mir-33 microRNA precursor family: a 67-nucleotide sequence from Microctonus hyperodae. A search with the family's covariance model found it, with a score of 62 bits. A reference for the family is Li et al. (2009), "Direct sequencing and expression analysis of a large number of miRNAs in Aedes aegypti and a multi-species survey of novel mosquito miRNAs", BMC Genomics. Its family is annotated with RISC complex and gene silencing by miRNA in the Gene Ontology. The base pairs follow the family's consensus structure, which was predicted with PFOLD.

[Rfam]
RNA sequence: CGAGUGUGCAUUGUAGUUGCAUUGCAUAGACAAUAUAUUGUGCAAUACUUCGACAGUGCAACUCUCG
Number, nucleotide and partner (000 for none) at each position: 001c067002g066003a065004g064005u000006g063007u060008g059009c058010a057011u056012u055013g054014u053015a000016g051017u000018u000019g048020c000021a046022u045023u044024g043025c042026a041027u040028a000029g000030a000031c000032a000033a000034u000035a000036u000037a000038u000039u000040g027041u026042g025043c024044a023045a022046u021047a000048c019049u000050u000051c016052g000053a014054c013055a012056g011057u010058g009059c008060a007061a000062c000063u006064c004065u003066c002067g001